[Rfam]
This 132-nucleotide sequence from Vulpes vulpes belongs to the Rfam family "Small nucleolar RNA SNORA11". Rfam links the family to the GO terms RNA processing and nucleolus. Rfam classes the family as an H/ACA-box small nucleolar RNA. The base pairs follow the family's consensus structure, which was predicted with RNAalifold. U107 (SNORA11) is a member of the H/ACA class of snoRNAs that guide the sites of modification of uridines to pseudouridines. This snoRNA was identified by RT-PCR from blood cells and its expression confirmed by Northern blot analysis. There is no predicted target for this guide snRNA. It scores 105 bits against the family's covariance model. On this family, see Gu et al., Nucleic Acids Res 2005: "A novel experimental approach for systematic identification of box H/ACA snoRNAs from eukaryotes".

RNA sequence: GGAGUGUGCUCAGAGCAGGGGACCCGAAGAAAUGGCUCCUCUGUUUACGACACACCCAAUGGGAAUCUGGGUUCAUUGUGACAAGGGGCCAGAAACUGGUGGCCUUACUACAAACAGAGACACCCUACAGGU
Numbered sequence: 001g002g003a004g005u006g007u008g009c010u011c012a013g014a015g016c017a018g019g020g021g022a023c024c025c026g027a028a029g030a031a032a033u034g035g036c037u038c039c040u041c042u043g044u045u046u047a048c049g050a051c052a053c054a055c056c057c058a059a060u061g062g063g064a065a066u067c068u069g070g071g072u073u074c075a076u077u078g079u080g081a082c083a084a085g086g087g088g089c090c091a092g093a094a095a096c097u098g099g100u101g102g103c104c105u106u107a108c109u110a111c112a113a114a115c116a117g118a119g120a121c122a123c124c125c126u127a128c129a130g131g132u
Stems, first nucleotide, its partner, number of pairs: 002057001004055005013046009023035002070125002073122001077116003085105003089101001090098003